[Rfam]
RNA sequence: ACCGGUAUUCUUGAUUGUUAAACUCAACACUACAAUUAUACCGAGUAAAACUAUCUGGGAAAAGGGCAGGCCUCAACCUUCGGGUUGUCUUCGGACACGGAGGAUCCCCGCUUUUCAGGUGUACUCAAAUCCUGUCGUCAGGAGUUUAAAUAAUCCAACCGGUGUGGCGCCUGAU
Number, nucleotide and partner (000 for none) at each position: 001a000002c000003c000004g000005g000006u000007a000008u000009u000010c000011u000012u000013g000014a000015u000016u000017g000018u000019u000020a000021a000022a000023c000024u000025c000026a000027a000028c000029a000030c000031u000032a000033c000034a000035a000036u000037u000038a000039u000040a000041c000042c000043g000044a000045g000046u000047a000048a000049a000050a122051c121052u000053a000054u119055c118056u117057g116058g115059g114060a113061a112062a000063a000064g109065g108066g000067c000068a000069g000070g000071c103072c102073u101074c100075a000076a085077c084078c083079u000080u000081c000082g000083g078084g077085u076086u000087g096088u095089c094090u000091u000092c000093g000094g089095a088096c087097a000098c000099g000100g074101a073102g072103g071104a000105u000106c000107c000108c065109c064110g000111c000112u061113u060114u059115u058116c057117a056118g055119g054120u000121g051122u050123a000124c000125u000126c000127a000128a000129a000130u000131c000132c000133u000134g000135u000136c000137g000138u000139c000140a000141g000142g000143a000144g000145u000146u000147u000148a000149a000150a000151u000152a000153a000154u000155c000156c000157a000158a000159c000160c000161g000162g000163u000164g000165u000166g000167g000168c000169g000170c000171c000172u000173g000174a000175u000
The family of this 175-nucleotide sequence from Marinilabilia salmonicolor is "Bacteroidales-1 6S-Bacteroidales RNA suggested". Bacteroidales-1 was first reported in a comparative genomics-based approach of genome and metagenome sequences from Weinberg et al. 2010 In a high-resolution transcriptome map study of Bacteroides thetaiotaomicron, Ryan et al. 2020 report this sRNA as 6S RNA homologue of Bacteroides, in the study they obtain evidence of small product RNAs (pRNAs) related to 6S function. The family's RNA type in Rfam is small RNA.